[Rfam]
RNA sequence: UCAUAUUCCCGUUGGGGAAGGAUGAGAAGCUUCGACUAAGGUUCGAUUCGAGCAAAGCGAGAAAGCGUUGCCGCAGGCAAUGACCCGAAGGGCGAGACGCAAAGCGUCGAGUCAUCCUUCCCCCGCCACCA
Numbered sequence: 001u002c003a004u005a006u007u008c009c010c011g012u013u014g015g016g017g018a019a020g021g022a023u024g025a026g027a028a029g030c031u032u033c034g035a036c037u038a039a040g041g042u043u044c045g046a047u048u049c050g051a052g053c054a055a056a057g058c059g060a061g062a063a064a065g066c067g068u069u070g071c072c073g074c075a076g077g078c079a080a081u082g083a084c085c086c087g088a089a090g091g092g093c094g095a096g097a098c099g100c101a102a103a104g105c106g107u108c109g110a111g112u113c114a115u116c117c118u119u120c121c122c123c124c125g126c127c128a129c130c131a
Stems, first nucleotide, its partner, number of pairs: 015122007023114001033094002036092002042089004049059002066082006

Overview: Rfam assigns this 131-nucleotide RNA from Buttiauxella agrestis to the family "RtT RNA". Lineage of the source: Bacteria > Pseudomonadati > Enterobacteriaceae > Buttiauxella > Buttiauxella agrestis. This family represents a bacterial cis-regulatory element known as RtT RNA. The exact function of RtT is unknown although it is thought that it may be involved in changing the cellular response in relation to amino acid starvation. A reference for the family is Bosl and Kersten (1991), "A novel RNA product of the tyrT operon of Escherichia coli", Nucleic Acids Res. Gene Ontology term of the family: cellular response to amino acid starvation. It scores 128 bits against the family's covariance model. The family's RNA type in Rfam is cis-regulatory element.